[Rfam]
RNA sequence: UACCUGGUUGAUCCUGCCAGUAGUCAUAUGCUUGUCUCAAAGAUUAAGCCAUGCAUGUCUUAGUGUAAAAUAACUCUAUUGAAACUGCGAAUGGCUCAUUAAAUCAGUUAUCGUUUAUUUGAUGGUUCCUUACUACAUGGAUAACCGUAGUAAUUCUAGAGCUAAUACAUGCACCAAGGCCCGACUCACGGAGGGUUGUAUUUAUUAGAUUCAAAACCAGCACCACCUGGUGAUUCAUAGUAACUAAACGAACCGCAUGCCUUUAUGGUGGCGGUGAUUCAUUCAAAUUUCUGCCCUAUCAACUUUCGAUGGUAGGAUAGAGGCCUACCAUGGUUUUAACGGGUGACGGAGAAUUAGGGUUCGAUUCCGGAGAGGGAGCCUGAGAGACGGCUACCACAUCCAAGGAAGGCAGCAGGCGCGCAAAUUACCCAAUCCCGACUCGGGGAGGUAGUGACAAUAAAUAACAAUACAGGGCCAACGGUCUUGUUAUUGGAAUGAGAACAAUUUAAAUCCCUUAACGAGGAUCAAUUAGAGGGCAAGUCUGGUGCCAGCAGCCGCGGUAAUUCCAGCUCUAAUAGCGUAUAUUAAAGUUGUUG
Numbered sequence: 001u002a003c004c005u006g007g008u009u010g011a012u013c014c015u016g017c018c019a020g021u022a023g024u025c026a027u028a029u030g031c032u033u034g035u036c037u038c039a040a041a042g043a044u045u046a047a048g049c050c051a052u053g054c055a056u057g058u059c060u061u062a063g064u065g066u067a068a069a070a071u072a073a074c075u076c077u078a079u080u081g082a083a084a085c086u087g088c089g090a091a092u093g094g095c096u097c098a099u100u101a102a103a104u105c106a107g108u109u110a111u112c113g114u115u116u117a118u119u120u121g122a123u124g125g126u127u128c129c130u131u132a133c134u135a136c137a138u139g140g141a142u143a144a145c146c147g148u149a150g151u152a153a154u155u156c157u158a159g160a161g162c163u164a165a166u167a168c169a170u171g172c173a174c175c176a177a178g179g180c181c182c183g184a185c186u187c188a189c190g191g192a193g194g195g196u197u198g199u200a201u202u203u204a205u206u207a208g209a210u211u212c213a214a215a216a217c218c219a220g221c222a223c224c225a226c227c228u229g230g231u232g233a234u235u236c237a238u239a240g241u242a243a244c245u246a247a248a249c250g251a252a253c254c255g256c257a258u259g260c261c262u263u264u265a266u267g268g269u270g271g272c273g274g275u276g277a278u279u280c281a282u283u284c285a286a287a288u289u290u291c292u293g294c295c296c297u298a299u300c301a302a303c304u305u306u307c308g309a310u311g312g313u314a315g316g317a318u319a320g321a322g323g324c325c326u327a328c329c330a331u332g333g334u335u336u337u338a339a340c341g342g343g344u345g346a347c348g349g350a351g352a353a354u355u356a357g358g359g360u361u362c363g364a365u366u367c368c369g370g371a372g373a374g375g376g377a378g379c380c381u382g383a384g385a386g387a388c389g390g391c392u393a394c395c396a397c398a399u400c401c402a403a404g405g406a407a408g409g410c411a412g413c414a415g416g417c418g419c420g421c422a423a424a425u426u427a428c429c430c431a432a433u434c435c436c437g438a439c440u441c442g443g444g445g446a447g448g449u450a451g452u453g454a455c456a457a458u459a460a461a462u463a464a465c466a467a468u469a470c471a472g473g474g475c476c477a478a479c480g481g482u483c484u485u486g487u488u489a490u491u492g493g494a495a496u497g498a499g500a501a502c503a504a505u506u507u508a509a510a511u512c513c514c515u516u517a518a519c520g521a522g523g524a525u526c527a528a529u530u531a532g533a534g535g536g537c538a539a540g541u542c543u544g545g546u547g548c549c550a551g552c553a554g555c556c557g558c559g560g561u562a563a564u565u566c567c568a569g570c571u572c573u574a575a576u577a578g579c580g581u582a583u584a585u586u587a588a589a590g591u592u593g594u595u596g
Stems, first nucleotide, its partner, number of pairs: 004020005022586003026583007035459001037457001041452001042419001048417003052414003057088002062086003069080002095372003105293003110288002114286002120281003136171004145161001148158003178197005185190001202243006216231004253274004258270004295343003302334003309331008347369004351362004374395002377392003397408001399406002425450001427449003433445005465492003469487008499519001501516001503515001529575006542569004551558002
RNA: Eukaryotic small subunit ribosomal RNA, nucleotides 1 to 596